[Rfam]
RNA sequence: UGGUGGUUAUGGUGAAGGAACUAUUGGUGUGAUUUGUGGUUUCGAAGCAUAUCACAGCCAUUAGUUACUUCAUUAUGGCUGGUC
Numbered sequence: 001u002g003g004u005g006g007u008u009a010u011g012g013u014g015a016a017g018g019a020a021c022u023a024u025u026g027g028u029g030u031g032a033u034u035u036g037u038g039g040u041u042u043c044g045a046a047g048c049a050u051a052u053c054a055c056a057g058c059c060a061u062u063a064g065u066u067a068c069u070u071c072a073u074u075a076u077g078g079c080u081g082g083u084c
Stems, first nucleotide, its partner, number of pairs: 004081008016070003019066004025060001026058001028056006035049002
RNA: mir-2944 microRNA precursor family
Organism: Phaedon cochleariae